RNA sequence: GUGCUUCCAAUAGGAAUUAAACUUACGAAUUCGCCAAUUAUAAGUUGGACACUUUAACCAUUAAGCCAUGGAUGC
Numbered sequence: 001g002u003g004c005u006u007c008c009a010a011u012a013g014g015a016a017u018u019a020a021a022c023u024u025a026c027g028a029a030u031u032c033g034c035c036a037a038u039u040a041u042a043a044g045u046u047g048g049a050c051a052c053u054u055u056a057a058c059c060a061u062u063a064a065g066c067c068a069u070g071g072a073u074g075c
Stems, first nucleotide, its partner, number of pairs: 003075002006072003011025004040069002044066003048062002
RNA: Plastid-ycf2 5UTR RNA